[Rfam]
RNA sequence: CACUUAUCCAGAGAGGCGGAGGGACUGGCCCGAUGAAGCCUCGGCAGCAGGUCUGUUGACACUGUGCCAAUUCCACCGGUAUACCGGAAAGAUAAGCA
Numbered sequence: 001c002a003c004u005u006a007u008c009c010a011g012a013g014a015g016g017c018g019g020a021g022g023g024a025c026u027g028g029c030c031c032g033a034u035g036a037a038g039c040c041u042c043g044g045c046a047g048c049a050g051g052u053c054u055g056u057u058g059a060c061a062c063u064g065u066g067c068c069a070a071u072u073c074c075a076c077c078g079g080u081a082u083a084c085c086g087g088a089a090a091g092a093u094a095a096g097c098a
Base pairs, nucleotide, nucleotide: 003096004095005094006093007092008091013042014041015040016039017038021031022030023029026075027074028073043068044067045066046065048064049063051060052059053058072090076087077086078085079084
Shown here is a 98-nucleotide sequence from Bacillus sp. NRRL B-14911, a member of the family "SAM riboswitch aptamer (S box leader)". Rfam describes the family as follows. The SAM riboswitch is found upstream of a number of genes which code for proteins involved in methionine or cysteine biosynthesis in Gram-positive bacteria. The SAM riboswitch acts at the level of transcription termination control. The organism belongs to Bacillus, within Bacteria.